This 75-nucleotide sequence from Sus scrofa belongs to the Rfam family "mir-9847 microRNA precursor family".
[Rfam]
Nucleotides: 075
Base pairs, nucleotide, nucleotide: 011065012064013063014062016061017060018059020057021056023053024052025051026050027049028048031045032044033043034042035041
Number, partner (000 for none) and nucleotide at each position: 001000u002000g003000c004000a005000g006000a007000a008000g009000a010000u011065g012064c013063c014062c015000a016061u017060a018059c019000c020057g021056a022000g023053c024052c025051c026050u027049g028048g029000u030000g031045g032044a033043g034042g035041c036000a037000g038000c039000c040000g041035g042034u043033c044032u045031u046000g047000c048028u049027c050026a051025g052024g053023g054000g055000g056021u057020c058000a059018g060017u061016g062014g063013g064012g065011c066000u067000u068000a069000g070000a071000a072000a073000c074000a075000g
Notes
The sequence is in the family's curated seed alignment. The source organism's lineage runs through Eukaryota, Vertebrata, Teleostomi, Tetrapoda and Sus.